[Rfam]
RNA sequence: CAGACUGUUGCCAAUGAUGAAACAUAGUUAAACUGAAACUAAUGAUGUAAUUCAGUUCCUUCGUCACUACCACUGAGACAACAGAUGG
Numbered sequence: 001c002a003g004a005c006u007g008u009u010g011c012c013a014a015u016g017a018u019g020a021a022a023c024a025u026a027g028u029u030a031a032a033c034u035g036a037a038a039c040u041a042a043u044g045a046u047g048u049a050a051u052u053c054a055g056u057u058c059c060u061u062c063g064u065c066a067c068u069a070c071c072a073c074u075g076a077g078a079c080a081a082c083a084g085a086u087g088g
Base pairs, nucleotide, nucleotide: 001088003086005084006083007082008081009080010079012077
RNA: Small nucleolar RNA SNORD70